Annotation: The record is a 151-nucleotide sequence from Oceanibacterium hippocampi, which matches "FMN riboswitch aptamer (RFN element)" in Rfam. Pairs were carried over by alignment from the consensus structure, which is taken from published work. It scores 115 bits against the family's covariance model.
[Rfam]
RNA sequence: GCUUGUUCUCAGGGCAGGGUGAAAUUCCCGACCGGCGGUAUGUCCCAGGUGACUGGGACGAGCCCGCGAGCGCCCGUUCCGACGGAACGGGGUCAGCAGAUCCGGUGAGAAGCCGGAGCCGACGGUACAGUCCGGAUGGGAGAGGAUAAGC
Numbered sequence: 001g002c003u004u005g006u007u008c009u010c011a012g013g014g015c016a017g018g019g020u021g022a023a024a025u026u027c028c029c030g031a032c033c034g035g036c037g038g039u040a041u042g043u044c045c046c047a048g049g050u051g052a053c054u055g056g057g058a059c060g061a062g063c064c065c066g067c068g069a070g071c072g073c074c075c076g077u078u079c080c081g082a083c084g085g086a087a088c089g090g091g092g093u094c095a096g097c098a099g100a101u102c103c104g105g106u107g108a109g110a111a112g113c114c115g116g117a118g119c120c121g122a123c124g125g126u127a128c129a130g131u132c133c134g135g136a137u138g139g140g141a142g143a144g145g146a147u148a149a150g151c
Stems, first nucleotide, its partner, number of pairs: 003149008017029003031131002033121002035067004062119002070097002101117005123134003